[Rfam]
RNA sequence: CAGGCCGCCUCAUCAGGGGUCUGCGGCUGGAUGCGCCAGCGAUGCCAUACGCUUGUAACCAUGUUGCUUGAUGGAGGAUGUGGGUAUGAGAA
Numbered sequence: 001c002a003g004g005c006c007g008c009c010u011c012a013u014c015a016g017g018g019g020u021c022u023g024c025g026g027c028u029g030g031a032u033g034c035g036c037c038a039g040c041g042a043u044g045c046c047a048u049a050c051g052c053u054u055g056u057a058a059c060c061a062u063g064u065u066g067c068u069u070g071a072u073g074g075a076g077g078a079u080g081u082g083g084g085u086a087u088g089a090g091a092a
Base pairs, nucleotide, nucleotide: 001023002022003021004020005019006018008017009016032049033048052090053089054088055087056086057085059083060082061081062080063079064078065077067076068075069074
Shown here is a 92-nucleotide RNA from Pikeienuella piscinae, a member of the family "Repression of heat shock gene expression (ROSE) element". It is annotated as an RNA thermoregulator. This family represents a 5' UTR cis-regulatory element found in heat shock mRNAs and is known as the ROSE (repression of heat shock gene expression) element. The family has 13 seed sequences and 381 matches in Rfam 15.1. Rfam links the family to the GO terms regulation of translation and response to temperature stimulus. The match comes from Rfam's covariance-model search (53 bits).